Source information
This 172-nucleotide RNA from Hypnocyclicus thermotrophus belongs to the Rfam family "Lysine riboswitch aptamer". Riboswitches are metabolite binding domains within certain messenger RNAs that serve as precision sensors for their corresponding targets. The base pairs follow the family's consensus structure, which is taken from published work. The source organism's lineage runs through Bacteria, Fusobacteriati, Fusobacteriales, Fusobacteriaceae and Hypnocyclicus. Rfam links the family to the GO term lysine biosynthetic process.
[Rfam]
RNA sequence: AUUAGAGAUAGAGGCUGCAAAAUUUAUUAGUAGUUAUAUGGAGACUAGCAAUCUAUGAAAUAUAACAAAAGGAAAUUUUGCCGAAAUGCAAGAUAUGCUAAAAUCUUGACAUUGGGGUUAUAGAGAAUAUCUAUAGCACUGUCACAAUUAUUUGUGAUGAGCUAUCCGGGUA
Numbered sequence: 001a002u003u004a005g006a007g008a009u010a011g012a013g014g015c016u017g018c019a020a021a022a023u024u025u026a027u028u029a030g031u032a033g034u035u036a037u038a039u040g041g042a043g044a045c046u047a048g049c050a051a052u053c054u055a056u057g058a059a060a061u062a063u064a065a066c067a068a069a070a071g072g073a074a075a076u077u078u079u080g081c082c083g084a085a086a087u088g089c090a091a092g093a094u095a096u097g098c099u100a101a102a103a104u105c106u107u108g109a110c111a112u113u114g115g116g117g118u119u120a121u122a123g124a125g126a127a128u129a130u131c132u133a134u135a136g137c138a139c140u141g142u143c144a145c146a147a148u149u150a151u152u153u154g155u156g157a158u159g160a161g162c163u164a165u166c167c168g169g170g171u172a
Base pairs, nucleotide, nucleotide: 007166008165009164010163011162017081018080019079020078021077022076023075024074025073033066034065035064036063037062038061039060085113086112087111088110089108090107091106092105093104094103096101114140115139117137118136119135120134121133122132123131124130142157143156144155145154146153147152